[Rfam]
Nucleotides: 140
Stems, first nucleotide, its partner, number of pairs: 004139005089109001091107002
Number, partner (000 for none) and nucleotide at each position: 001000g002000c003000c004139a005138u006137u007136g008135a009000a010000g011000g012000a013000g014000g015000a016000c017000g018000a019000g020000c021000u022000g023000a024000u025000c026000u027000c028000c029000u030000a031000c032000a033000u034000c035000c036000u037000c038000a039000a040000c041000a042000g043000c044000c045000u046000c047000g048000a049000c050000a051000u052000g053000g054000a055000c056000u057000a058000c059000c060000a061000g062000c063000c064000g065000c066000u067000g068000g069000u070000c071000u072000u073000u074000g075000c076000c077000c078000u079000u080000g081000a082000c083000g084000c085000c086000c087000g088000c089109a090000c091107c092106a093000u094000c095000c096000c097000g098000g099000u100000c101000a102000c103000c104000c105000u106092u107091g108000a109089u110000g111000a112000a113000u114000u115000g116000u117000u118000u119000g120000c121000u122000c123000a124000g125000a126000u127000g128000a129000g130000u131000a132000a133000c134000u135008u136007u137006g138005a139004u140000c